Rfam assigns this 97-nucleotide RNA from Musa troglodytarum to the family "MIR535 microRNA precursor family". Pairs were carried over by alignment from the consensus structure, which was predicted with RNAalifold. A search with the family's covariance model found it, with a score of 65 bits. NCBI's taxonomy places the organism under Eukaryota, Mesangiospermae, Liliopsida, Musaceae, Musa. Its family is annotated with miRNA-mediated post-transcriptional gene silencing and RISC complex in the Gene Ontology.
RNA sequence: GUGGUUGGUUGACAACGAGAGAGAGCACGCCGGUCCGAGGCCCAUGCCGGCUGCCAUGGUCCAGUACUAGCGUGCUCCUUCUCGUUGUCACCCCGUU
Dot-bracket structure: .........(((((.((..((.(.((((((.(((...............................))).)))))).).))..)).))))).......